[Rfam]
RNA sequence: CCCUGUAUCGAAAGUGACUUUGGUCUCUGGUUGCCAGGUCAUUGAUACUACAGGAAAAGAAACUUGAAAAUCAUCCCUGUGUUUGCAGGAUUGCUUUGUUCCUGUCAAACCCCUUUAUAUUUCAAACA
Numbered sequence: 001c002c003c004u005g006u007a008u009c010g011a012a013a014g015u016g017a018c019u020u021u022g023g024u025c026u027c028u029g030g031u032u033g034c035c036a037g038g039u040c041a042u043u044g045a046u047a048c049u050a051c052a053g054g055a056a057a058a059g060a061a062a063c064u065u066g067a068a069a070a071u072c073a074u075c076c077c078u079g080u081g082u083u084u085g086c087a088g089g090a091u092u093g094c095u096u097u098g099u100u101c102c103u104g105u106c107a108a109a110c111c112c113c114u115u116u117a118u119a120u121u122u123c124a125a126a127c128a
Stems, first nucleotide, its partner, number of pairs: 002054006013043008022035003065124005070118002081110005086104005
This 128-nucleotide RNA sequence from Clarias magur belongs to the Rfam family "Small nucleolar RNA SNORA71". About the family: The members of this family belong to the H/ACA class of snoRNAs which bind a number of proteins (including dyskerin, Gar1p and Nop10p) to form snoRNP complexes. This class of snoRNAs are thought to guide the sites of modification of uridines to pseudouridines by forming direct base pairing interactions with substrate RNAs. This family includes U71 (SNORA71), ACA39 (SNORA39) and ACA60 (SNORA60). U71 and ACA60 are predicted to guide the pseudouridylation of U406 and U1004 in 18S rRNA respectively. The organism belongs to Clarias, within Eukaryota. It is annotated as an H/ACA-box small nucleolar RNA. It scores 78 bits against the family's covariance model. Gene Ontology terms of the family: RNA processing and nucleolus. The family has 40 seed sequences and 1,805 matches in Rfam 15.1. For this family Rfam cites "The family of box ACA small nucleolar RNAs is defined by an evolutionarily conserved secondary structure and ubiquitous sequence elements essential for RNA accumulation" (Ganot et al., Genes Dev, 1997).